[Rfam]
This 91-nucleotide RNA sequence from Rhododendron williamsianum belongs to the Rfam family "Small nucleolar RNA U54".
A reference for the family is Chen et al. (2003), "The high diversity of snoRNAs in plants: identification and comparative study of 120 snoRNA genes from Oryza sativa", Nucleic Acids Res.
RNA sequence: GGCUCUGUGAUUUGACGCCUGAUAUUUGGGCAAUAUACGCUAUUCUGAAUGCUAAUGUGAGCUGAUGAAUUUUCUGAUAACGAUGAGAGCU
Number, nucleotide and partner (000 for none) at each position: 001g091002g090003c089004u088005c087006u000007g000008u000009g000010a000011u000012u000013u000014g000015a000016c000017g000018c000019c000020u000021g000022a000023u000024a000025u000026u000027u000028g000029g000030g000031c000032a000033a000034u000035a000036u000037a000038c000039g000040c000041u000042a000043u000044u000045c000046u000047g000048a000049a000050u000051g000052c000053u000054a000055a000056u000057g000058u000059g000060a000061g000062c000063u000064g000065a000066u000067g000068a000069a000070u000071u000072u000073u000074c000075u000076g000077a000078u000079a000080a000081c000082g000083a000084u000085g000086a000087g005088a004089g003090c002091u001

About the family: U54 is a C/D box small nucleolar RNA, which acts as a methylation guide for 18S ribosomal RNA in plants. Its Rfam clan is "U54 clan".